[Rfam]
Plastid-clpP 5UTR RNA: a 69-nucleotide RNA from Phtheirospermum japonicum. The family's consensus secondary structure was predicted with LocARNA. By type it is a cis-regulatory element. For this family Rfam cites "Retrograde signaling in plants: A critical review focusing on the GUN pathway and beyond" (Richter et al., Plant Commun, 2023). Plastid clpP is a non-coding RNA (ncRNA) recognised in plastids. It was found in the prime untranslated region (5UTR) of a protease complex subunit (clpP) in plastids, suggesting a posible cis-regulatory function. Taxonomically the source falls in Phtheirospermum (Eukaryota, asterids, lamiids, Lamiales).
RNA sequence: AUUUUGGUUCGUAGGAACAAAGAGAAGCAGAUUCAUUCUAUACUCGAUAAGUACCAAUAAGCAAUGGGG
Numbered sequence: 001a002u003u004u005u006g007g008u009u010c011g012u013a014g015g016a017a018c019a020a021a022g023a024g025a026a027g028c029a030g031a032u033u034c035a036u037u038c039u040a041u042a043c044u045c046g047a048u049a050a051g052u053a054c055c056a057a058u059a060a061g062c063a064a065u066g067g068g069g
Base pairs, nucleotide, nucleotide: 003022004021007018008017009016010015043068044067045066052059053058

A search with the family's covariance model found it, with a score of 82 bits.